RNA sequence: ACACACACUGAAUGGUCAGAUUAUUGUGCGUUCAGAGAUCACAAUAAUCUGACCAUUCAGUGUGUGU
Numbered sequence: 001a002c003a004c005a006c007a008c009u010g011a012a013u014g015g016u017c018a019g020a021u022u023a024u025u026g027u028g029c030g031u032u033c034a035g036a037g038a039u040c041a042c043a044a045u046a047a048u049c050u051g052a053c054c055a056u057u058c059a060g061u062g063u064g065u066g067u
Stems, first nucleotide, its partner, number of pairs: 004064014019049010